[Rfam]
RNA sequence: ACUGUUCAGUGAUGAAGCCAUGGAAUAAACACUGAGCACGGUUCCUAACAUGCAUGAGGAAAGGCUCCAUGCUGCCUUCCUUCUGAGGACAGC
Numbered sequence: 001a002c003u004g005u006u007c008a009g010u011g012a013u014g015a016a017g018c019c020a021u022g023g024a025a026u027a028a029a030c031a032c033u034g035a036g037c038a039c040g041g042u043u044c045c046u047a048a049c050a051u052g053c054a055u056g057a058g059g060a061a062a063g064g065c066u067c068c069a070u071g072c073u074g075c076c077u078u079c080c081u082u083c084u085g086a087g088g089a090c091a092g093c
Stems, first nucleotide, its partner, number of pairs: 002092004

Notes
Rfam assigns this 93-nucleotide sequence from Sphenodon punctatus to the family "Small nucleolar RNA U83B". The literature on the family includes a 2000 paper in Nucleic Acids Res by Jady and Kiss, "Characterisation of the U83 and U84 small nucleolar RNAs: two novel 2'-O-ribose methylation guide RNAs that lack complementarities to ribosomal RNAs". U83B belongs to the C/D family of snoRNAs. U83B like U83A has no documented RNA target and they share the same host gene with the C/D box snoRNA U43 (RPL3). Taxonomically the source falls in Sphenodon (Eukaryota, Metazoa, Sauria, Sphenodontia). The family's RNA type in Rfam is C/D-box small nucleolar RNA. Rfam links the family to the GO terms nucleolus and RNA processing. The base pairs follow the family's consensus structure. It scores 77 bits against the family's covariance model.